RNA sequence: UUUGUGUGUCUUUGGUGGCAUCAGUAAUCUAAUACGAUUUGCCACCU
Numbered sequence: 001u002u003u004g005u006g007u008g009u010c011u012u013u014g015g016u017g018g019c020a021u022c023a024g025u026a027a028u029c030u031a032a033u034a035c036g037a038u039u040u041g042c043c044a045c046c047u
Base pairs, nucleotide, nucleotide: 014046015045016044017043018042019041020040022036024035025034
The record is a 47-nucleotide sequence from Bacillus subtilis, which matches "DicF RNA" in Rfam. Lineage of the source: Bacteria > Bacillati > Caryophanales > Bacillaceae > Bacillus. It is one of the family's seed sequences.